[Rfam]
RNA: Small nucleolar RNA SNORD35
RNA sequence: UGCAGAUGAUGCCAAUCUCACGAUGGUCUGCCGAGCCCACUGGGGCCUGACGACACUGCCACAUGGCUUUACUGAUGCAGGGAC
Numbered sequence: 001u002g003c004a005g006a007u008g009a010u011g012c013c014a015a016u017c018u019c020a021c022g023a024u025g026g027u028c029u030g031c032c033g034a035g036c037c038c039a040c041u042g043g044g045g046c047c048u049g050a051c052g053a054c055a056c057u058g059c060c061a062c063a064u065g066g067c068u069u070u071a072c073u074g075a076u077g078c079a080g081g082g083a084c
Base pairs, nucleotide, nucleotide: 001079002078003077004076